[Rfam]
RNA sequence: GAAAACCCGUCCGGUAGCGUCUGACCAACGGCCGGAAGCGAGUCUUGCGUGGGGCGAGGGUAACCCGCACUGCGAAGCGUAGACAGCCAGUCCGAAAGCCAUGCUAUUGAGCGCCGAAAGGCCUUUCGCAGAAGCCCUUGCUGUACACAUACCAGGGGCCACGCUGCCGCACUGUACGGUCUGGUGCGAGCAGUCCCGCCGGCGUCGACUGAACA
Numbered sequence: 001g002a003a004a005a006c007c008c009g010u011c012c013g014g015u016a017g018c019g020u021c022u023g024a025c026c027a028a029c030g031g032c033c034g035g036a037a038g039c040g041a042g043u044c045u046u047g048c049g050u051g052g053g054g055c056g057a058g059g060g061u062a063a064c065c066c067g068c069a070c071u072g073c074g075a076a077g078c079g080u081a082g083a084c085a086g087c088c089a090g091u092c093c094g095a096a097a098g099c100c101a102u103g104c105u106a107u108u109g110a111g112c113g114c115c116g117a118a119a120g121g122c123c124u125u126u127c128g129c130a131g132a133a134g135c136c137c138u139u140g141c142u143g144u145a146c147a148c149a150u151a152c153c154a155g156g157g158g159c160c161a162c163g164c165u166g167c168c169g170c171a172c173u174g175u176a177c178g179g180u181c182u183g184g185u186g187c188g189a190g191c192a193g194u195c196c197c198g199c200c201g202g203c204g205u206c207g208a209c210u211g212a213a214c215a
Base pairs, nucleotide, nucleotide: 010036011035012034013033014032018030019029020028023181024180025179038087039086042084043083044082045081046079047078048074049073050072051071052070054068055067056066058065059064109206111205112204113203114202115201116200128199129198131196133194134159135158136157139154140153142151164193165192166191167190168188169187170186171185172184173183
Dot-bracket structure: .........(((((...(((..[[[..))).))))).((..(((((((((((.(((.((....))))).)))))...)).)))).)).....................(.((((((...........((.(.((((..((.(........).))..)))....((((((((((.....]]].)))))).))))).).))))))))).........
Rfam assigns this 215-nucleotide RNA from Anatilimnocola aggregata to the family "Group II catalytic intron D1-D4-6".
Group II introns are found in rRNA, tRNA and mRNA of organelles in fungi, plants and protists, and also in mRNA in bacteria.
The base pairs follow the family's consensus structure.